[Rfam]
RNA: SAH (S-adenosyl-L-homocysteine) riboswitch aptamer
Organism: Acidovorax sp. JS42
RNA sequence: CUUUCCGAGGAGCGUUGCAGCGUCCCCAGCACGGCGGGGCGCGAGGCUCGGAAGUCAUACCCAGCAACGACGCUCACCCACG
Numbered sequence: 001c002u003u004u005c006c007g008a009g010g011a012g013c014g015u016u017g018c019a020g021c022g023u024c025c026c027c028a029g030c031a032c033g034g035c036g037g038g039g040c041g042c043g044a045g046g047c048u049c050g051g052a053a054g055u056c057a058u059a060c061c062c063a064g065c066a067a068c069g070a071c072g073c074u075c076a077c078c079c080a081c082g
Stems, first nucleotide, its partner, number of pairs: 002054007021041006